RNA: Small nucleolar RNA SNORA61
RNA sequence: UUCCUCCAGAUCCCUUUCCCAUCAGAUCUGAAUACCGAUCUUGUGGUCGAAAAAGGAGGAAAAAUAAAAUUCAAACUGGUCUCGGCCUCUUUGCUGAUGCAGUCCUGCUCUGAGAGGG
Numbered sequence: 001u002u003c004c005u006c007c008a009g010a011u012c013c014c015u016u017u018c019c020c021a022u023c024a025g026a027u028c029u030g031a032a033u034a035c036c037g038a039u040c041u042u043g044u045g046g047u048c049g050a051a052a053a054a055g056g057a058g059g060a061a062a063a064a065u066a067a068a069a070u071u072c073a074a075a076c077u078g079g080u081c082u083c084g085g086c087c088u089c090u091u092u093g094c095u096g097a098u099g100c101a102g103u104c105c106u107g108c109u110c111u112g113a114g115a116g117g118g
Base pairs, nucleotide, nucleotide: 003059004058005057006056007055019046020045021044023043025040026039027038028037076107078105079104081102082101